A member of the RNA family "mir-172 microRNA precursor family" from Carex littledalei, 121 nucleotides long. Lineage of the source: Eukaryota > Mesangiospermae > Liliopsida > Cariceae > Carex subgen. Euthyceras. The literature on the family includes a 2004 paper in Mol Cell by Jones-Rhoades and Bartel, "Computational Identification of Plant MicroRNAs and Their Targets, Including a Stress-Induced miRNA". From the family's description: mir-172 has been experimentally verified in Arabidopsis thaliana. This family is thought to target mRNAs coding for APETALA2-like transcription factors. The mature sequence is excised from the 3' arm of the hairpin.
RNA sequence: GAGUUUGCUGGUGCAGCACCUUCAAGAUUCACAUAAAUCUAAUUUCAUAUUUUCCUAUUGAUUAUAUGAUUUAUAUUAGGAUAUGGUAUGAGAAUCUUGAUGAUGCUGCAUCGGCAAAUGU
Number, nucleotide and partner (000 for none) at each position: 001g000002a000003g000004u000005u000006u000007g000008c000009u000010g112011g111012u110013g109014c108015a107016g106017c105018a104019c000020c102021u000022u100023c099024a098025a097026g096027a095028u094029u093030c092031a000032c090033a089034u088035a087036a000037a000038u000039c000040u000041a000042a000043u000044u000045u000046c000047a000048u000049a000050u000051u000052u000053u000054c000055c000056u000057a000058u000059u000060g000061a000062u000063u000064a000065u000066a000067u000068g000069a000070u000071u000072u000073a000074u000075a000076u000077u000078a000079g000080g000081a000082u000083a000084u000085g000086g000087u035088a034089u033090g032091a000092g030093a029094a028095u027096c026097u025098u024099g023100a022101u000102g020103a000104u018105g017106c016107u015108g014109c013110a012111u011112c010113g000114g000115c000116a000117a000118a000119u000120g000121u000

The match comes from Rfam's covariance-model search (86 bits).